[Rfam]
RNA sequence: GUGCAUAAAACGCCAAAUUCCCUGCACCGGGAAGCGGGGGAACCAUAUCUUGGGUGAAUUGAUCUCGCUUUAGAGGGGUCAUAGGGGACCUUCUACCGAAUCCUUAAGCUAACCUCGCAGGCCUUGGAAGGAGUACAU
Dot-bracket structure: ...........(((...(((((......)))))((((((.....(....).(((.....(((((((........)))))))..((..........))...))).........)))))).)))................
RNA: c-di-AMP riboswitch aptamer (ydaO/yuaA leader)
Organism: Paenibacillus graminis